[Rfam]
RNA sequence: ACCGCUAAGCCAUCUCUCCAGCCCAAUAAACUAUUUUUAAAAAGAAGAAAAGGGGCUGGAGGGAUGGCUUAGUGGU
Numbered sequence: 001a002c003c004g005c006u007a008a009g010c011c012a013u014c015u016c017u018c019c020a021g022c023c024c025a026a027u028a029a030a031c032u033a034u035u036u037u038u039a040a041a042a043a044g045a046a047g048a049a050a051a052g053g054g055g056c057u058g059g060a061g062g063g064a065u066g067g068c069u070u071a072g073u074g075g076u
Base pairs, nucleotide, nucleotide: 002075003074004073005072006071007070008069009068010067011066012065013064014063015062016061017060018059019058020057021056022055023054024053
RNA: mir-3473 microRNA precursor family
Organism: Jaculus jaculus